Rfam assigns this 111-nucleotide RNA sequence from Treponema parvum to the family "TD-1 RNA".
The source organism's lineage runs through Bacteria, Spirochaetia, Treponematales, Treponemataceae and Treponema.
A reference for the family is Weinberg et al. (2007), "Identification of 22 candidate structured RNAs in bacteria using the CMfinder comparative genomics pipeline", Nucleic Acids Res.

[Rfam]
RNA sequence: UUUUAAUUUCGAGUUUGCCUUUCGGCAAACGUCGCUUAUUAACUGUGCGCAAGAUGCGCACGAAAACGCCAUUCUCGGAAAUUGAAAUUUCCUCACAUGUCGUUUUUUAAG
Numbered sequence: 001u002u003u004u005a006a007u008u009u010c011g012a013g014u015u016u017g018c019c020u021u022u023c024g025g026c027a028a029a030c031g032u033c034g035c036u037u038a039u040u041a042a043c044u045g046u047g048c049g050c051a052a053g054a055u056g057c058g059c060a061c062g063a064a065a066a067c068g069c070c071a072u073u074c075u076c077g078g079a080a081a082u083u084g085a086a087a088u089u090u091c092c093u094c095a096c097a098u099g100u101c102g103u104u105u106u107u108u109a110a111g
Stems, first nucleotide, its partner, number of pairs: 011033002013030007045061007064105005070099003077092006

About this RNA
The match comes from Rfam's covariance-model search (65 bits). Its Rfam clan is "TD (Treponema denticola) motifs". Rfam 15.1 lists 147 matches to the family in 9 species.